[Rfam]
RNA sequence: UUAAUCCCGCUAUUGCAUUCCAUUUCGAGUCAUUCAACCCCAAAAUUCUAGUACACACUAAAGCUUGCCUUUGGGCAUAUCAGGGGCAGCGGGAGAAUUUAGAAUUUCGACAUGUGGUACACUAUUUAUCUCAUGGAGAUUCUAAUUUUU
Numbered sequence: 001u002u003a004a005u006c007c008c009g010c011u012a013u014u015g016c017a018u019u020c021c022a023u024u025u026c027g028a029g030u031c032a033u034u035c036a037a038c039c040c041c042a043a044a045a046u047u048c049u050a051g052u053a054c055a056c057a058c059u060a061a062a063g064c065u066u067g068c069c070u071u072u073g074g075g076c077a078u079a080u081c082a083g084g085g086g087c088a089g090c091g092g093g094a095g096a097a098u099u100u101a102g103a104a105u106u107u108c109g110a111c112a113u114g115u116g117g118u119a120c121a122c123u124a125u126u127u128a129u130c131u132c133a134u135g136g137a138g139a140u141u142c143u144a145a146u147u148u149u150u
Base pairs, nucleotide, nucleotide: 006093007092008091009090010089020029062078063076064075068086069085070084072082073081101143102142103141104140105139106138107137108136111135112134116130117129118128119127
RNA: Ciliate telomerase RNA